[Rfam]
RNA sequence: CAUUGAUCGACAACGCAAUCAGCAAGAAACCACAGGUAGUGCAGAUCGAGGCGACCGAUAAGGCGUUCAAGACGAACGGCUGUCAGCCCUGGCAGAUCGCCCCGCCCGGCGAUGGCAAUGUGCCCGGCGAGCUUCCAGGACCAGUUGCCGGGGCCCAGCUGCAAGCGAAUCUCGGGAUUCUCAACGGACUGCUCGGUCAGGUCGGCCAGCAAGUA
Numbered sequence: 001c002a003u004u005g006a007u008c009g010a011c012a013a014c015g016c017a018a019u020c021a022g023c024a025a026g027a028a029a030c031c032a033c034a035g036g037u038a039g040u041g042c043a044g045a046u047c048g049a050g051g052c053g054a055c056c057g058a059u060a061a062g063g064c065g066u067u068c069a070a071g072a073c074g075a076a077c078g079g080c081u082g083u084c085a086g087c088c089c090u091g092g093c094a095g096a097u098c099g100c101c102c103c104g105c106c107c108g109g110c111g112a113u114g115g116c117a118a119u120g121u122g123c124c125c126g127g128c129g130a131g132c133u134u135c136c137a138g139g140a141c142c143a144g145u146u147g148c149c150g151g152g153g154c155c156c157a158g159c160u161g162c163a164a165g166c167g168a169a170u171c172u173c174g175g176g177a178u179u180c181u182c183a184a185c186g187g188a189c190u191g192c193u194c195g196g197u198c199a200g201g202u203c204g205g206c207c208a209g210c211a212a213g214u215a
Stems, first nucleotide, its partner, number of pairs: 003209003008205001015023002029037003039077002044073001046070001048068003053064001055063002080095006098126002104123002107120002111116001129156001133153004138148001172201002175198001179196002

The record is a 215-nucleotide RNA sequence from Mycobacterium simulans, which matches "Mycobacterium sRNA 6715" in Rfam. A search with the family's covariance model found it, with a score of 154 bits. Lineage of the source: Bacteria > Bacillati > Actinomycetota > Actinomycetes > Mycobacterium. The literature on the family includes a 2017 paper in J Cell Mol Med by Kanniappan et al., "RNomic identification and evaluation of npcTB_6715, a non-protein-coding RNA gene as a potential biomarker for the detection of Mycobacterium tuberculosis".